Shown here is a 94-nucleotide RNA, a member of the family "Rhodo-rpoB RNA". The family's consensus secondary structure is taken from published work.
RNA sequence: GGUUCGGGAGCCACCCUUCGGGACGGGCGGCACGAAUGGAACCCACGCGGCCCUUCGCAGGCGGCACGACCCCAUGGCCCGAUUGGGGGACGUG
Numbered sequence: 001g002g003u004u005c006g007g008g009a010g011c012c013a014c015c016c017u018u019c020g021g022g023a024c025g026g027g028c029g030g031c032a033c034g035a036a037u038g039g040a041a042c043c044c045a046c047g048c049g050g051c052c053c054u055u056c057g058c059a060g061g062c063g064g065c066a067c068g069a070c071c072c073c074a075u076g077g078c079c080c081g082a083u084u085g086g087g088g089g090a091c092g093u094g
Base pairs, nucleotide, nucleotide: 001043002042003041004040005039010031011030012029014027015026016025065094066093067092068091070087071086072085074083